[Rfam]
Nucleotides: 092
Base pairs, nucleotide, nucleotide: 002091003090004089005088010080011079012078013077014076015075016074017073018072019070020069021068025055026054028053029052030051031050032049034048035047039086040085041084043082059067060066
Number, partner (000 for none) and nucleotide at each position: 001000a002091g003090c004089a005088a006000a007000g008000u009000a010080g011079a012078u013077a014076a015075c016074a017073c018072g019070c020069g021068u022000u023000a024000a025055g026054u027000g028053c029052u030051a031050g032049a033000u034048g035047g036000a037000u038000g039086g040085g041084a042000a043082g044000u045000u046000g047035c048034c049032u050031u051030u052029a053028g054026a055025c056000g057000a058000a059067a060066c061000u062000u063000a064000g065000u066060g067059u068021g069020c070019g071000a072018u073017g074016u075015g076014u077013u078012a079011u080010u081000g082043c083000c084041u085040c086039c087000g088005u089004u090003g091002c092000a
Rfam assigns this 92-nucleotide RNA sequence from Erysipelothrix inopinata to the family "THF (Tetrahydrofolate) riboswitch aptamer". The match comes from Rfam's covariance-model search (68 bits). The base pairs follow the family's consensus structure, which is taken from published work. Rfam 15.1 lists 747 matches to the family in 747 species. The organism belongs to Erysipelothrix, within Bacteria. For this family Rfam cites "A eubacterial riboswitch class that senses the coenzyme tetrahydrofolate" (Ames et al., Chem Biol, 2010).